[Rfam]
RNA: c-di-GMP-I-GGC riboswitch aptamer
RNA sequence: ACCGAUAAAGGCAAACCUGUCGAAAGGCAGGGACGCAAAACCACGGGCCUGUAGCCUUAUAUAAAAAAAACUUAUAUAAGGUAUGGCAGCCGGGUUACCGAAG
Numbered sequence: 001a002c003c004g005a006u007a008a009a010g011g012c013a014a015a016c017c018u019g020u021c022g023a024a025a026g027g028c029a030g031g032g033a034c035g036c037a038a039a040a041c042c043a044c045g046g047g048c049c050u051g052u053a054g055c056c057u058u059a060u061a062u063a064a065a066a067a068a069a070a071c072u073u074a075u076a077u078a079a080g081g082u083a084u085g086g087c088a089g090c091c092g093g094g095u096u097a098c099c100g101a102a103g
Stems, first nucleotide, its partner, number of pairs: 003100002011036002016031006034089001039096004044092003047087003